[Rfam]
RNA sequence: CUCUCAUCAAGAGAGGUGGAGGGAAACGGCCCGAUGAAGCCCGGCAACCCGUCUGUGUUUUGUCUAUGACAGGAAGGGUGCCAAUUCCGGCGAUAGCAGCUAUCGCAAGAUGAGGG
Numbered sequence: 001c002u003c004u005c006a007u008c009a010a011g012a013g014a015g016g017u018g019g020a021g022g023g024a025a026a027c028g029g030c031c032c033g034a035u036g037a038a039g040c041c042c043g044g045c046a047a048c049c050c051g052u053c054u055g056u057g058u059u060u061u062g063u064c065u066a067u068g069a070c071a072g073g074a075a076g077g078g079u080g081c082c083a084a085u086u087c088c089g090g091c092g093a094u095a096g097c098a099g100c101u102a103u104c105g106c107a108a109g110a111u112g113a114g115g116g
Stems, first nucleotide, its partner, number of pairs: 001116008013042001015041003021032003027089003043082004048078002052073005086108001091105006